A member of the RNA family "HNH endonuclease-associated RNA and ORF (HEARO) RNA" from Scytonema hofmannii, 229 nucleotides long.
[Rfam]
RNA sequence: GUCAGCACCCCGCACUAAAGUGACGGGGCUUCAUGCCCCACCAUUUUAGUUAGUUGCACCAGACUAUCAGCCUUAAACAAGCUGGGUUCACAUUAAGUGUUAAAGUUCUCACCUUGGGAUGCGUUGCUAGUUCCAAGCUCUGAAAUUGAGUAAUUAAACAGUUUUACGAGGGGUAAGACAGUGUUGCUUGAAGAGUACCGGAUGUGAACAGAGUCGAAGCUAACAUCAC
Dot-bracket structure: (((((((.((((.((....))..)).))......................).)))).))..((((..((((.(.....).)))..(((((((((..............((..((((((((...[.[[[.))))))))....))..(((((((((...((.(((((((.....))))))).))))))))))).........))))))))).)))))..]]].].......
NCBI's taxonomy places the organism under Bacteria, Cyanobacteriota, Cyanophyceae, Nostocales, Scytonema hofmannii. Rfam 15.1 lists 952 matches to the family in 249 species.